[Rfam]
The record is a 148-nucleotide sequence from Nyssa sinensis, which matches "Small nucleolar RNA F1/F2/snoR5a" in Rfam.
Rfam links the family to the GO terms nucleolus and RNA processing.
It scores 64 bits against the family's covariance model.
From the family's description: This family contains F1, F2 and snoR5a sequences, all of which are members of the the H/ACA class of snoRNA that guide the sites of modification of uridines to pseudouridines.

RNA sequence: UAAUUGCCCAUGGUAUCUGAUGUCCAGACUUUGUUUCUGUUGCUGGCCAUCUCGUUUAAAGGGCAGAAAUUGAAUAAUGAACAGUUCUUGCGACACAGUCAGCUUCAUUUCUUAUAAGCUGACUGUUACUUUAUCCCUGCUUACAUUU
Numbered sequence: 001u002a003a004u005u006g007c008c009c010a011u012g013g014u015a016u017c018u019g020a021u022g023u024c025c026a027g028a029c030u031u032u033g034u035u036u037c038u039g040u041u042g043c044u045g046g047c048c049a050u051c052u053c054g055u056u057u058a059a060a061g062g063g064c065a066g067a068a069a070u071u072g073a074a075u076a077a078u079g080a081a082c083a084g085u086u087c088u089u090g091c092g093a094c095a096c097a098g099u100c101a102g103c104u105u106c107a108u109u110u111c112u113u114a115u116a117a118g119c120u121g122a123c124u125g126u127u128a129c130u131u132u133a134u135c136c137c138u139g140c141u142u143a144c145a146u147u148u
Base pairs, nucleotide, nucleotide: 004066005065006064007063008062009061019051020050021049022048024046025045026044027043028040029039080141082139083138084137095126096125097124098123099122101120102119103118104117
The organism belongs to Nyssa, within Eukaryota.